[Rfam]
RNA sequence: UGAAUAAACAUCAUUGAGUGCAGCGUUGAUGUAAUUUACUUUUUUUCUCCAUUUCUGAAUGAAUUAAAGCAAUUGAUAUCAACGUUUGCGCUCAAUUAUGUUUUUC
Numbered sequence: 001u002g003a004a005u006a007a008a009c010a011u012c013a014u015u016g017a018g019u020g021c022a023g024c025g026u027u028g029a030u031g032u033a034a035u036u037u038a039c040u041u042u043u044u045u046u047c048u049c050c051a052u053u054u055c056u057g058a059a060u061g062a063a064u065u066a067a068a069g070c071a072a073u074u075g076a077u078a079u080c081a082a083c084g085u086u087u088g089c090g091c092u093c094a095a096u097u098a099u100g101u102u103u104u105u106c
Stems, first nucleotide, its partner, number of pairs: 006103006013096010023085006030078003
RNA: MIR397 microRNA precursor family
Organism: Arabis alpina